About this RNA:
A member of the RNA family "Bacterial RNase P class A" from Actinocrispum wychmicini, 387 nucleotides long. The organism belongs to Actinocrispum, within Bacteria. It is annotated as a ribozyme. The match comes from Rfam's covariance-model search (283 bits). Gene Ontology terms of the family: ribonuclease P activity, dimeric ribonuclease P complex and tRNA processing.

RNA sequence: CGAGUCGGCAGGGCGACCGCGGCGCCCCGACCGGGGUGUCGAGGAAAGUCCGGACUCCACAGGGCAGGGUGGUUGCCAACGGCAACCCGAGGUGACUCGCGGGACAGUGCCACAGAGAACAGACCGCCUCGGCCCAGUGCCGAGGUAAGGGUGAAACGGCGGUGUAAGAGACCACCAGCACCCCGGGUGACCGGGGUGGCUCGGUAAACCCCACCCGGAGCAAGGCCAAAAGGGCACCCACGGGUGCCUGCGCAGGCGUUCGAGGGCGGCCCGCCCGAGCCUGCGGGUAGGCCGCACGAGCCCGUCGGCGACGGCGGGCCCAGAUGGAUGGUCGCCACCCGGGCCUCGGCCCGGGGACAGAAUCCGGCUUACACGCCGGCUCGUCCG
Number, nucleotide and partner (000 for none) at each position: 001c383002g382003a381004g380005u379006c378007g377008g376009c375010a000011g372012g336013g335014c334015g333016a332017c331018c330019g000020c041021g040022g039023c038024g037025c036026c035027c034028c033029g000030a000031c000032c000033g028034g027035g026036g025037u024038g023039u022040c021041g020042a000043g000044g000045a000046a370047a369048g368049u000050c367051c366052g365053g364054a363055c220056u219057c218058c217059a000060c000061a000062g272063g271064g270065c269066a000067g216068g215069g214070u213071g212072g086073u085074u084075g083076c082077c000078a000079a000080c000081g000082g076083c075084a074085a073086c072087c101088c099089g098090a097091g096092g000093u000094g000095a000096c091097u090098c089099g088100c000101g087102g211103g210104a000105c000106a000107g209108u208109g205110c204111c203112a000113c000114a000115g000116a000117g000118a000119a000120c000121a000122g000123a000124c150125c149126g146127c145128c144129u143130c142131g141132g140133c139134c000135c000136a000137g000138u000139g133140c132141c131142g130143a129144g128145g127146u126147a000148a000149g125150g124151g000152u000153g000154a000155a000156a000157c000158g176159g175160c000161g173162g172163u171164g000165u000166a000167a000168g000169a000170g000171a163172c162173c161174a000175c159176c158177a000178g200179c198180a197181c196182c195183c194184c193185g192186g191187g000188u000189g000190a000191c186192c185193g184194g183195g182196g181197u180198g179199g000200c178201u000202c000203g111204g110205u109206a000207a000208a108209c107210c103211c102212c071213a070214c069215c068216c067217g058218g057219a056220g055221c000222a000223a000224g293225g292226c291227c290228a000229a000230a000231a000232g000233g000234g000235c000236a000237c000238c000239c000240a000241c000242g000243g000244g000245u000246g000247c000248c000249u000250g000251c000252g284253c283254a282255g281256g280257c279258g000259u000260u000261c000262g000263a000264g276265g275266g274267c273268g000269g065270c064271c063272c062273g267274c266275c265276c264277g000278a000279g257280c256281c255282u254283g253284c252285g000286g000287g000288u000289a000290g227291g226292c225293c224294g000295c000296a000297c000298g000299a000300g319301c318302c317303c316304g315305u314306c313307g312308g000309c000310g000311a000312c307313g306314g305315c304316g303317g302318g301319c300320c000321c000322a000323g000324a000325u000326g000327g000328a000329u000330g018331g017332u016333c015334g014335c013336c012337a000338c000339c000340c000341g000342g000343g000344c000345c000346u000347c000348g000349g000350c000351c000352c000353g000354g000355g000356g000357a000358c000359a000360g000361a000362a000363u054364c053365c052366g051367g050368c048369u047370u046371a000372c011373a000374c000375g009376c008377c007378g006379g005380c004381u003382c002383g001384u000385c000386c000387g000